[Rfam]
RNA sequence: GCCCCCGUAGCUCAGGGGAUAGAGCAUUGGUUUCCUAAACCAUGAGCGCAAGUUCGAGUCUUGCCGGGGGCA
Numbered sequence: 001g002c003c004c005c006c007g008u009a010g011c012u013c014a015g016g017g018g019a020u021a022g023a024g025c026a027u028u029g030g031u032u033u034c035c036u037a038a039a040c041c042a043u044g045a046g047c048g049c050a051a052g053u054u055c056g057a058g059u060c061u062u063g064c065c066g067g068g069g070g071c072a
Stems, first nucleotide, its partner, number of pairs: 001071007010025004028042004048064005
RNA: tRNA
Organism: Acidithrix ferrooxidans